[Rfam]
RNA sequence: AGGUAAUGUCUACUGCACCUUUAUCACUGUAGGCACUCGGUUACGCUGUGGGUCUUUCAAGAGACCUUAGACAUGAUUGUCGAGGGUGUAAUGUGAGGUUGGGUUCAAUGCCCU
Numbered sequence: 001a002g003g004u005a006a007u008g009u010c011u012a013c014u015g016c017a018c019c020u021u022u023a024u025c026a027c028u029g030u031a032g033g034c035a036c037u038c039g040g041u042u043a044c045g046c047u048g049u050g051g052g053u054c055u056u057u058c059a060a061g062a063g064a065c066c067u068u069a070g071a072c073a074u075g076a077u078u079g080u081c082g083a084g085g086g087u088g089u090a091a092u093g094u095g096a097g098g099u100u101g102g103g104u105u106c107a108a109u110g111c112c113c114u
Stems, first nucleotide, its partner, number of pairs: 001020004007035007036097004040092008050067007070081004101113004
Shown here is a 114-nucleotide sequence from Paenibacillus lemnae, a member of the family "epsC RNA". Rfam classes the family as a cis-regulatory element. The family's consensus secondary structure is taken from published work.